[Rfam]
RNA sequence: UUUGGGAAUGGAUCGCCGGCAUAAGUCGCCCCCCGCCGGCGCGCCUUUCCCGGGGGCGAGCCAACAGCUCGUCCCCACAGUUGCUCUUCCGGCGGAACAGAGCCCCCCUCUGUCGGAAGGUGCGCGACGGGCGGCGAAGCCCCCAAUUCGCCGCCCGUUUCC
Numbered sequence: 001u002u003u004g005g006g007a008a009u010g011g012a013u014c015g016c017c018g019g020c021a022u023a024a025g026u027c028g029c030c031c032c033c034c035g036c037c038g039g040c041g042c043g044c045c046u047u048u049c050c051c052g053g054g055g056g057c058g059a060g061c062c063a064a065c066a067g068c069u070c071g072u073c074c075c076c077a078c079a080g081u082u083g084c085u086c087u088u089c090c091g092g093c094g095g096a097a098c099a100g101a102g103c104c105c106c107c108c109u110c111u112g113u114c115g116g117a118a119g120g121u122g123c124g125c126g127a128c129g130g131g132c133g134g135c136g137a138a139g140c141c142c143c144c145a146a147u148u149c150g151c152c153g154c155c156c157g158u159u160u161c162c
Stems, first nucleotide, its partner, number of pairs: 010045002014041002017038004052076010082124002085120002089116004094111003129156010

Bradyrhizobiaceae sRNA BjrC80: a 162-nucleotide RNA sequence from Afipia sp. P52-10. Taxonomically the source falls in Afipia (Bacteria, Alphaproteobacteria, Hyphomicrobiales, Nitrobacteraceae). A search with the family's covariance model found it, with a score of 96 bits. The base pairs follow the family's consensus structure.